RNA sequence: GGCUCGGGAGCGGUCCUACGGGACGGAUCGCAUGAAUAGAGCCAAUCCCCCUUCGCCAGCGGCGCAUGAACGUGGCCCGACGUUCCUUCG
Numbered sequence: 001g002g003c004u005c006g007g008g009a010g011c012g013g014u015c016c017u018a019c020g021g022g023a024c025g026g027a028u029c030g031c032a033u034g035a036a037u038a039g040a041g042c043c044a045a046u047c048c049c050c051c052u053u054c055g056c057c058a059g060c061g062g063c064g065c066a067u068g069a070a071c072g073u074g075g076c077c078c079g080a081c082g083u084u085c086c087u088u089c090g
Base pairs, nucleotide, nucleotide: 001043002042003041004040005039010031011030012029013028014027015026016025063090064089066087068085069084070083071082072081
RNA: Rhodo-rpoB RNA
Organism: Pseudorhodobacter sp. MZDSW-24AT